Background
The record is a 384-nucleotide sequence from Nocardiopsis ansamitocini, which matches "Bacterial RNase P class A" in Rfam. It scores 286 bits against the family's covariance model. The source organism's lineage runs through Bacteria, Bacillati, Actinomycetota, Nocardiopsidaceae and Nocardiopsis. The base pairs follow the family's consensus structure, which is taken from published work. About the family: Ribonuclease P (RNase P) is a ubiquitous endoribonuclease, found in archaea, bacteria and eukarya as well as chloroplasts and mitochondria.
RNA sequence: GGAGUCGGCCAGACGGUCGCGGCGUCGCUUGCGGCGUCGAGGAAAGUCCGGACUCCACAGGGCAGGGUGGUCGGUAACGCCGACCCGGGGCGACCCGCGGGACAGUGCCACAGAGAACAGACCGCCGCCGGGCGACCGGCGGUAAGGGUGAAACGGUGGUGUAAGAGACCACCAGCGUCCGGAGUGAUCCGGGCGGCUUGGUAAACCCCACCCGGAGCAAGGUCAAAAGGGGGACGCGAGUCCUCUGCGCGGACGAUCGAGGGCGGCCCGCCCGAUGUUCGCGGGUAGACCGCACCGAGGUCGCUGGUAACAGCGGCCCCAGAUGGAUGGCCGUCCGGCCCGGCGACGGGCCGACAGAAUCCGGCUUACCGGCCGACUCCCUCU
Numbered sequence: 001g002g003a004g005u006c007g008g009c010c011a012g013a014c015g016g017u018c019g020c021g022g023c024g025u026c027g028c029u030u031g032c033g034g035c036g037u038c039g040a041g042g043a044a045a046g047u048c049c050g051g052a053c054u055c056c057a058c059a060g061g062g063c064a065g066g067g068u069g070g071u072c073g074g075u076a077a078c079g080c081c082g083a084c085c086c087g088g089g090g091c092g093a094c095c096c097g098c099g100g101g102a103c104a105g106u107g108c109c110a111c112a113g114a115g116a117a118c119a120g121a122c123c124g125c126c127g128c129c130g131g132g133c134g135a136c137c138g139g140c141g142g143u144a145a146g147g148g149u150g151a152a153a154c155g156g157u158g159g160u161g162u163a164a165g166a167g168a169c170c171a172c173c174a175g176c177g178u179c180c181g182g183a184g185u186g187a188u189c190c191g192g193g194c195g196g197c198u199u200g201g202u203a204a205a206c207c208c209c210a211c212c213c214g215g216a217g218c219a220a221g222g223u224c225a226a227a228a229g230g231g232g233g234a235c236g237c238g239a240g241u242c243c244u245c246u247g248c249g250c251g252g253a254c255g256a257u258c259g260a261g262g263g264c265g266g267c268c269c270g271c272c273c274g275a276u277g278u279u280c281g282c283g284g285g286u287a288g289a290c291c292g293c294a295c296c297g298a299g300g301u302c303g304c305u306g307g308u309a310a311c312a313g314c315g316g317c318c319c320c321a322g323a324u325g326g327a328u329g330g331c332c333g334u335c336c337g338g339c340c341c342g343g344c345g346a347c348g349g350g351c352c353g354a355c356a357g358a359a360u361c362c363g364g365c366u367u368a369c370c371g372g373c374c375g376a377c378u379c380c381c382u383c384u
Base pairs, nucleotide, nucleotide: 001380002379003378004377005376006375007374008373009372010371012335013334014333015332016331017330018329020039021038022037023036024035025034026033027032044367045366046365048364049363050362051361052360053217054216055215056214060269061268062267063266065213066212067211068210069209070084071083072082073081074080085099086097087096088095089094100208101207105206106205107202108201109200122147123146124143125142126141127140128139129138130137131136155173156172157171158170159169160168175197176195177194178193179192180191181190182189183188221291222290223289224288231282233280234279261273262272263271264270299318300317301316302315303314304313305312306311